[Rfam]
RNA sequence: CGAGCUGGCCGGGCGGCCGCGUCGACGCUGUGUGCAGCGUCGCCGAGGAAAGUCCGGACUCCACAGGGCAAGGUGGUGGGUAACGCCCACCCGGGGUGACCCGCGGGAAAGUGCCACAGAAAGCAAACCGCCGGCAUGCCCCGGCAUGCCGGUAAGGGUGAAACGGUGGUGUAAGAGACCACCAGCGUCUUGGGUGACCAGGACGGCUCGGCAAACCCCACCUGGAGCAAGGUCAGACAGGAAGCGUUCGAGGGUGGCCCGCCCGAUGCUUCCGGGUAGACCGCACGAGGCUGUCGGCAACGGCAGUCCUAGAUGGAUGGCCGCCGCUCCCGCAUCGUCGGGAGGCACAGAAUCCGGCUUAUAGGCCAGCUCGUCCU
Numbered sequence: 001c002g003a004g005c006u007g008g009c010c011g012g013g014c015g016g017c018c019g020c021g022u023c024g025a026c027g028c029u030g031u032g033u034g035c036a037g038c039g040u041c042g043c044c045g046a047g048g049a050a051a052g053u054c055c056g057g058a059c060u061c062c063a064c065a066g067g068g069c070a071a072g073g074u075g076g077u078g079g080g081u082a083a084c085g086c087c088c089a090c091c092c093g094g095g096g097u098g099a100c101c102c103g104c105g106g107g108a109a110a111g112u113g114c115c116a117c118a119g120a121a122a123g124c125a126a127a128c129c130g131c132c133g134g135c136a137u138g139c140c141c142c143g144g145c146a147u148g149c150c151g152g153u154a155a156g157g158g159u160g161a162a163a164c165g166g167u168g169g170u171g172u173a174a175g176a177g178a179c180c181a182c183c184a185g186c187g188u189c190u191u192g193g194g195u196g197a198c199c200a201g202g203a204c205g206g207c208u209c210g211g212c213a214a215a216c217c218c219c220a221c222c223u224g225g226a227g228c229a230a231g232g233u234c235a236g237a238c239a240g241g242a243a244g245c246g247u248u249c250g251a252g253g254g255u256g257g258c259c260c261g262c263c264c265g266a267u268g269c270u271u272c273c274g275g276g277u278a279g280a281c282c283g284c285a286c287g288a289g290g291c292u293g294u295c296g297g298c299a300a301c302g303g304c305a306g307u308c309c310u311a312g313a314u315g316g317a318u319g320g321c322c323g324c325c326g327c328u329c330c331c332g333c334a335u336c337g338u339c340g341g342g343a344g345g346c347a348c349a350g351a352a353u354c355c356g357g358c359u360u361a362u363a364g365g366c367c368a369g370c371u372c373g374u375c376c377u
Stems, first nucleotide, its partner, number of pairs: 001373010011362001012325007020045002023042006050360003054357005059227004066260004071223005076090005091105001092103004106218002111216002113212003128157002130153009165183006185207001186205008231282004240273006252264004289308008
Shown here is a 377-nucleotide RNA sequence from Phytoactinopolyspora halophila, a member of the family "Bacterial RNase P class A".
It is annotated as a ribozyme.
Rfam describes the family as follows. Ribonuclease P (RNase P) is a ubiquitous endoribonuclease, found in archaea, bacteria and eukarya as well as chloroplasts and mitochondria.